[Rfam]
RNA sequence: GCUAGAAAGAGGGAGAAAGAGAGGUCAUAAGAGCAAUGGGAAUGAGAACAUAGAGGAAAGACUAACUUAUCGGCUCUUCACCUCUUCUGUUGAGAUGAAAAUCCCGUUUGGUAUUUCCCAAUGCCUCUCAUUCCUAUCGUUCUUAAGCACCUCCUUCCUCUUGCUUUUUGUU
Number, nucleotide and partner (000 for none) at each position: 001g000002c000003u000004a000005g000006a000007a000008a000009g000010a162011g161012g160013g159014a000015g157016a156017a155018a000019g000020a000021g153022a152023g151024g000025u000026c147027a000028u145029a144030a143031g142032a141033g140034c139035a000036a000037u136038g135039g134040g133041a132042a131043u130044g129045a128046g127047a126048a000049c123050a122051u121052a000053g119054a000055g118056g117057a116058a115059a114060g000061a112062c111063u110064a000065a000066c000067u000068u000069a000070u000071c000072g000073g000074c000075u000076c000077u000078u000079c000080a000081c000082c000083u000084c000085u000086u000087c000088u000089g000090u000091u000092g000093a000094g000095a000096u000097g000098a000099a000100a000101a000102u000103c000104c000105c000106g000107u000108u000109u000110g063111g062112u061113a000114u059115u058116u057117c056118c055119c053120a000121a051122u050123g049124c000125c000126u047127c046128u045129c044130a043131u042132u041133c040134c039135u038136a037137u000138c000139g034140u033141u032142c031143u030144u029145a028146a000147g026148c000149a000150c000151c023152u022153c021154c000155u017156u016157c015158c000159u013160c012161u011162u010163g000164c000165u000166u000167u000168u000169u000170g000171u000172u000
This 172-nucleotide RNA sequence from Triticum turgidum belongs to the Rfam family "MIR2118 microRNA precursor family". The match comes from Rfam's covariance-model search (117 bits). The organism belongs to Triticum turgidum, within Eukaryota.